Shown here is a 56-nucleotide RNA sequence from Streptomyces inusitatus, a member of the family "L17-Actino-Proteobacteria ribosomal protein leader".

[Rfam]
RNA sequence: UCCCGUGGCAGCCGCCUCGGGGGAACUGACACCGGUACCUGAUACGGCCGGUGCAG
Numbered sequence: 001u002c003c004c005g006u007g008g009c010a011g012c013c014g015c016c017u018c019g020g021g022g023g024a025a026c027u028g029a030c031a032c033c034g035g036u037a038c039c040u041g042a043u044a045c046g047g048c049c050g051g052u053g054c055a056g
Stems, first nucleotide, its partner, number of pairs: 001022005007016003026056003030053007
The family's consensus secondary structure is taken from published work. For this family Rfam cites "Discovery of 20 novel ribosomal leader candidates in bacteria and archaea" (Eckert and Weinberg, BMC Microbiol, 2020).